The family of this 51-nucleotide sequence is "6A RNA".
[Rfam]
Nucleotides: 051
Base pairs, nucleotide, nucleotide: 006024007023008022009021010020011019014044015043016042017041
Number, partner (000 for none) and nucleotide at each position: 001000a002000g003000a004000g005000a006024u007023a008022g009021u010020c011019a012000u013000a014044g015043a016042u017041c018000g019011u020010g021009a022008c023007u024006a025000g026000g027000g028000u029000g030000a031000a032000a033000u034000a035000a036000a037000g038000a039000a040000a041017g042016a043015u044014c045000a046000a047000u048000g049000a050000g051000a
Notes:
Pairs were carried over by alignment from the consensus structure, which is taken from published work.